[Rfam]
RNA sequence: GAAACACCCCUAUGGAGCAGGGCUUGCUUCAGUAGGGCUUUGGUGCUCAUUGAGUCUGCUCCUUGAGUGUGUGUUG
Numbered sequence: 001g002a003a004a005c006a007c008c009c010c011u012a013u014g015g016a017g018c019a020g021g022g023c024u025u026g027c028u029u030c031a032g033u034a035g036g037g038c039u040u041u042g043g044u045g046c047u048c049a050u051u052g053a054g055u056c057u058g059c060u061c062c063u064u065g066a067g068u069g070u071g072u073g074u075u076g
Base pairs, nucleotide, nucleotide: 001075002074004072005071006070007069009067011065012064014062015061016060017059018058019057021056022055023054029053030052031051032050033049035047036046037044038043
A member of the RNA family "mir-9229 microRNA precursor family" from Myotis myotis, 76 nucleotides long. Its family is annotated with miRNA-mediated post-transcriptional gene silencing and RISC complex in the Gene Ontology. It scores 75 bits against the family's covariance model. The organism belongs to Myotis, within Eukaryota.